This 298-nucleotide RNA sequence from Pipistrellus kuhlii belongs to the Rfam family "Voltage-gated potassium-channel Kv1.4 IRES". Rfam links the family to the GO term ribosome binding. From the family's description: This family represents the Kv1.4 voltage-gated potassium-channel internal ribosome entry site (IRES). This region has been shown to mediate internal ribosome entry in cells derived from brain, heart, and skeletal muscle, tissues known to express Kv1.4 mRNA species. Rfam classes the family as an internal ribosome entry site. It scores 208 bits against the family's covariance model.
RNA sequence: UAGGCUUGAGUGUGCCAGGCUGUUCACCUGGACCCGGCCAAGCUCCGAAGAGCCAUGUCGAAUCCCUGGGGAAGACAGAGCAUGGGGCGUGCUGAUUUAAAAACAGAAAAUGCAAAGUUGGACUGAAACUAUCCUCCGUCUUCCAAGCAAUCUGCUUAAGGGUUCCAAACUUACCUUACUUUGGUGAGGAAAAAAAAAAAAAAAGAAAGAAAGAAAGAAAGCUGCCCUAUUUUUUUUUUUUUUCUUUCUUUCUUUCCUCUACAACCAGAACCAGCCAUUUCCCCAAACCGCCACCAUG
Numbered sequence: 001u002a003g004g005c006u007u008g009a010g011u012g013u014g015c016c017a018g019g020c021u022g023u024u025c026a027c028c029u030g031g032a033c034c035c036g037g038c039c040a041a042g043c044u045c046c047g048a049a050g051a052g053c054c055a056u057g058u059c060g061a062a063u064c065c066c067u068g069g070g071g072a073a074g075a076c077a078g079a080g081c082a083u084g085g086g087g088c089g090u091g092c093u094g095a096u097u098u099a100a101a102a103a104c105a106g107a108a109a110a111u112g113c114a115a116a117g118u119u120g121g122a123c124u125g126a127a128a129c130u131a132u133c134c135u136c137c138g139u140c141u142u143c144c145a146a147g148c149a150a151u152c153u154g155c156u157u158a159a160g161g162g163u164u165c166c167a168a169a170c171u172u173a174c175c176u177u178a179c180u181u182u183g184g185u186g187a188g189g190a191a192a193a194a195a196a197a198a199a200a201a202a203a204a205g206a207a208a209g210a211a212a213g214a215a216a217g218a219a220a221g222c223u224g225c226c227c228u229a230u231u232u233u234u235u236u237u238u239u240u241u242u243u244c245u246u247u248c249u250u251u252c253u254u255u256c257c258u259c260u261a262c263a264a265c266c267a268g269a270a271c272c273a274g275c276c277a278u279u280u281c282c283c284c285a286a287a288c289c290g291c292c293a294c295c296a297u298g
Base pairs, nucleotide, nucleotide: 047282049280050279051278068255069252071251072250073249074248075247077245078244079243080242082230083229084228085227086226087225088224089223091222092221093220096217097216098215104154105153106152107151111149112148113147118146119145120144121143122142125140126139170213171212172211174209